[Rfam]
Description: Rfam assigns this 100-nucleotide RNA from Venturia inaequalis to the family "Small nucleolar RNA Z13/snr52". The base pairs follow the family's consensus structure, which was predicted with PFOLD. The organism belongs to Venturia, within Eukaryota.
RNA sequence: UCGAUUCAUAUGAUGAAGAAUUCCGGAUGUUAAACACAUAUUCCUCCGAGAGCGCAAACCCCAUGUGGAGAUUUCCGUUGCCUUCCUUCUGAUCUGAACU
Dot-bracket structure: ..(.(..................((((..............................................))))...................).).